[Rfam]
RNA sequence: UAUGCUAGUCUUAGCUUAGUGUAUAUGAGUCGUUGAAGUUGCAGGAGCAAUACCCACUUUCUUGUUCUGUCAAGAGGUUGGGUAUUGCUCCUG
Numbered sequence: 001u002a003u004g005c006u007a008g009u010c011u012u013a014g015c016u017u018a019g020u021g022u023a024u025a026u027g028a029g030u031c032g033u034u035g036a037a038g039u040u041g042c043a044g045g046a047g048c049a050a051u052a053c054c055c056a057c058u059u060u061c062u063u064g065u066u067c068u069g070u071c072a073a074g075a076g077g078u079u080g081g082g083u084a085u086u087g088c089u090c091c092u093g
Base pairs, nucleotide, nucleotide: 042093043092044091045090046089047088048087049086050085051084052083053082055080056079059076060075061074062073063072
Rfam assigns this 93-nucleotide RNA sequence from Hydrastis canadensis to the family "Plastid-psbA-1 3UTR RNA". From the family's description: Plastid psbA-1 is a non-coding RNA (ncRNA) present in plastids. It was identified in inverted repeat sequences in the 3 prime untranslate region (3UTR) of photosystem II quinone-binding protein (psbA). On this family, see Richter et al., Plant Commun 2023: "Retrograde signaling in plants: A critical review focusing on the GUN pathway and beyond". The organism belongs to Hydrastis, within Eukaryota. Rfam classes the family as a cis-regulatory element. Rfam's curators put it in the seed alignment. The base pairs follow the family's consensus structure, which was predicted with LocARNA.